[Rfam]
RNA: Plastid-psbA-3 3UTR RNA
Nucleotides: 059
Base pairs, nucleotide, nucleotide: 001055002054003053004052005051006050007049008048009047010046011045012044013043014042019037020036021034022033023032024031
Number, partner (000 for none) and nucleotide at each position: 001055a002054a003053c004052a005051a006050a007049g008048a009047a010046a011045u012044a013043c014042c015000c016000a017000a018000u019037a020036u021034c022033u023032u024031g025000u026000u027000c028000g029000a030000a031024c032023a033022a034021g035000g036020a037019u038000a039000u040000u041000g042014g043013g044012u045011a046010u047009u048008u049007c050006u051005u052004u053003g054002u055001u056000u057000a058000u059000u